[Rfam]
RNA sequence: AUCAACUAUCCAAAACGACACACACGCUCCGGCACAUCGCCCAGGGUGCCGCCCUGCGGUCGGGUCGAUGGGGGGCGUGGAGGCAUAAC
Numbered sequence: 001a002u003c004a005a006c007u008a009u010c011c012a013a014a015a016c017g018a019c020a021c022a023c024a025c026g027c028u029c030c031g032g033c034a035c036a037u038c039g040c041c042c043a044g045g046g047u048g049c050c051g052c053c054c055u056g057c058g059g060u061c062g063g064g065u066c067g068a069u070g071g072g073g074g075g076c077g078u079g080g081a082g083g084c085a086u087a088a089c
Stems, first nucleotide, its partner, number of pairs: 023079008035070005040064003048060005